Nucleotides: 085
Base pairs, nucleotide, nucleotide: 008043009042010041011040012039014030015029016028017027018026019025052075053074054073056071057070060067061066
Number, partner (000 for none) and nucleotide at each position: 001000a002000g003000g004000a005000g006000g007000a008043g009042g010041c011040g012039c013000a014030u015029a016028u017027g018026u019025g020000c021000g022000a023000a024000g025019c026018a027017c028016a029015u030014a031000u032000u033000c034000a035000g036000g037000a038000u039012g040011c041010g042009c043008c044000g045000a046000c047000g048000a049000c050000a051000u052075g053074c054073c055000g056071c057070c058000g059000a060067a061066c062000g063000a064000a065000u066061g067060u068000g069000a070057g071056g072000g073054g074053g075052c076000a077000a078000c079000a080000c081000c082000a083000c084000u085000a
The family of this 85-nucleotide RNA is "GA-cis RNA". Pairs were carried over by alignment from the consensus structure, which is taken from published work. Rfam's curators put it in the seed alignment.